RNA sequence: GGCAAGACUAAGAACAAGAAGAGUAACUGGAAUUUUGUUUUCAGAGAAGAAACGACUAGGUGAAACGUUUCUAACAAAUACUAGUGAAGGUAGCUUGGGAGUCUUUAUUCUGAACAUCGCAGUAGGAAUAAACGCCUUGCGUCCGUUAACACGCACAAUGAGCGGCAGAAACAUUCUGCAAAUUAGGUGGUACCGCGUAGCUAUUACGUCCUAAAA
Numbered sequence: 001g002g003c004a005a006g007a008c009u010a011a012g013a014a015c016a017a018g019a020a021g022a023g024u025a026a027c028u029g030g031a032a033u034u035u036u037g038u039u040u041u042c043a044g045a046g047a048a049g050a051a052a053c054g055a056c057u058a059g060g061u062g063a064a065a066c067g068u069u070u071c072u073a074a075c076a077a078a079u080a081c082u083a084g085u086g087a088a089g090g091u092a093g094c095u096u097g098g099g100a101g102u103c104u105u106u107a108u109u110c111u112g113a114a115c116a117u118c119g120c121a122g123u124a125g126g127a128a129u130a131a132a133c134g135c136c137u138u139g140c141g142u143c144c145g146u147u148a149a150c151a152c153g154c155a156c157a158a159u160g161a162g163c164g165g166c167a168g169a170a171a172c173a174u175u176c177u178g179c180a181a182a183u184u185a186g187g188u189g190g191u192a193c194c195g196c197g198u199a200g201c202u203a204u205u206a207c208g209u210c211c212u213a214a215a216a
Stems, first nucleotide, its partner, number of pairs: 007102002015097004026085005037075003048072006105131007133145002165179006184213004195209005
Shown here is a 216-nucleotide RNA sequence from Enterococcus canis, a member of the family "T-box leader". Lineage of the source: Bacteria > Bacillati > Bacilli > Enterococcaceae > Enterococcus. A reference for the family is Winkler et al. (2001), "The GA motif: an RNA element common to bacterial antitermination systems, rRNA, and eukaryotic RNAs", RNA. The family's RNA type in Rfam is cis-regulatory leader. From the family's description: Uncharged tRNA acts as the effector for transcription antitermination of genes in the T-box leader family. T-boxes are found upstream of many aminoacyl-tRNA synthetase genes and some amino acid biosynthetic genes usually in Gram-positive bacteria. The anticodon of a specific tRNA base pairs to a specifier sequence within the T-box motif, and the NCCA acceptor tail of the tRNA base pairs to a conserved bulge in the T-box antiterminator hairpin. It scores 137 bits against the family's covariance model.